[Rfam]
RNA sequence: AGAUAACUCAGAACCUUCCGACUGAGGAUAUGAGUAACGGUCGUUUGGCACGGCCAGUAGCCUUCCUGUUCAACCAAACCUCCGGGUCGUUCCACCCGAGGGAACAGGUAGACUGCAAACCGUAAUAUCCCAACGCUCGGGAAUCCUCGCCCUUCAGGGCGGGGA
Numbered sequence: 001a002g003a004u005a006a007c008u009c010a011g012a013a014c015c016u017u018c019c020g021a022c023u024g025a026g027g028a029u030a031u032g033a034g035u036a037a038c039g040g041u042c043g044u045u046u047g048g049c050a051c052g053g054c055c056a057g058u059a060g061c062c063u064u065c066c067u068g069u070u071c072a073a074c075c076a077a078a079c080c081u082c083c084g085g086g087u088c089g090u091u092c093c094a095c096c097c098g099a100g101g102g103a104a105c106a107g108g109u110a111g112a113c114u115g116c117a118a119a120c121c122g123u124a125a126u127a128u129c130c131c132a133a134c135g136c137u138c139g140g141g142a143a144u145c146c147u148c149g150c151c152c153u154u155c156a157g158g159g160c161g162g163g164g165a
Stems, first nucleotide, its partner, number of pairs: 004037001007034004013029001015027001016025001039055005058115003062111002065108007084097004128142004133137001144165009
A member of the RNA family "Sense overlapping transcript RNA 0042 (sot)" from Halorubrum sp. JWXQ-INN 858, 165 nucleotides long. The family has 2 seed sequences and 196 matches in Rfam 15.1. The base pairs follow the family's consensus structure, which was predicted with RNAfold. Rfam's curators write: It is associated with IS1341-type transposase (tnpB) genes, at the 3'-end in H. salinarum NRC-1. The tetraloop structural motif may be functional. Rfam classes the family as a small RNA.